[Rfam]
RNA: Mammalian CPEB3 ribozyme
RNA sequence: AGAUGUUACUCUGCCUAGCAGAAGUGUUCACAUUGAGGCUCCAGUCAGCUUUCUGUGAAUCUGCAAAUUCUGCU
Numbered sequence: 001a002g003a004u005g006u007u008a009c010u011c012u013g014c015c016u017a018g019c020a021g022a023a024g025u026g027u028u029c030a031c032a033u034u035g036a037g038g039c040u041c042c043a044g045u046c047a048g049c050u051u052u053c054u055g056u057g058a059a060u061c062u063g064c065a066a067a068u069u070c071u072g073c074u
Stems, first nucleotide, its partner, number of pairs: 013039003017074007025035002046063003050059003